[Rfam]
A member of the RNA family "U12 minor spliceosomal RNA" from Dorcoceras hygrometricum, 159 nucleotides long.
The pairing is the family consensus, mapped onto this sequence.
Rfam classes the family as a spliceosomal small nuclear RNA.
A search with the family's covariance model found it, with a score of 91 bits.
Its Rfam clan is "U2 clan".
RNA sequence: UUGCCUUAAACUAAUGAGUAAGGAAAACAAAGUGGUCGGCGAGAGCUGACCACGGCACCCGUAUAUCCAAUACAAUGGUGCACGAAUUUAUGGAGGGGUUAUAGGCUGGCCCGGCGUUGACGCUGCUUACUUCGCAGAACUCGCUUGUGCGGGCCUCCC
Numbered sequence: 001u002u003g004c005c006u007u008a009a010a011c012u013a014a015u016g017a018g019u020a021a022g023g024a025a026a027a028c029a030a031a032g033u034g035g036u037c038g039g040c041g042a043g044a045g046c047u048g049a050c051c052a053c054g055g056c057a058c059c060c061g062u063a064u065a066u067c068c069a070a071u072a073c074a075a076u077g078g079u080g081c082a083c084g085a086a087u088u089u090a091u092g093g094a095g096g097g098g099u100u101a102u103a104g105g106c107u108g109g110c111c112c113g114g115c116g117u118u119g120a121c122g123c124u125g126c127u128u129a130c131u132u133c134g135c136a137g138a139a140c141u142c143g144c145u146u147g148u149g150c151g152g153g154c155c156u157c158c159c
Stems, first nucleotide, its partner, number of pairs: 004023005032053008055081005097159002103156005109150001111147001114144003123137004